[Rfam]
RNA: Phenylalanine leader peptide
RNA sequence: CCCAAAAAAGAUUUUUUUAUUGUUCACCUCCAUUUUUUGCUACCCCCCAGCGAAUUUGGGUCCGAACCCUGGGGUGUAGCAAAAAAUGGAGGUGAACAAAAAAAAACAACCUUUGUUGGGCCAAAGGUUUUUUUUU
Numbered sequence: 001c002c003c004a005a006a007a008a009a010g011a012u013u014u015u016u017u018u019a020u021u022g023u024u025c026a027c028c029u030c031c032a033u034u035u036u037u038u039g040c041u042a043c044c045c046c047c048c049a050g051c052g053a054a055u056u057u058g059g060g061u062c063c064g065a066a067c068c069c070u071g072g073g074g075u076g077u078a079g080c081a082a083a084a085a086a087u088g089g090a091g092g093u094g095a096a097c098a099a100a101a102a103a104a105a106a107c108a109a110c111c112u113u114u115g116u117u118g119g120g121c122c123a124a125a126g127g128u129u130u131u132u133u134u135u136u
Stems, first nucleotide, its partner, number of pairs: 016103003021098014036083004042075004108129008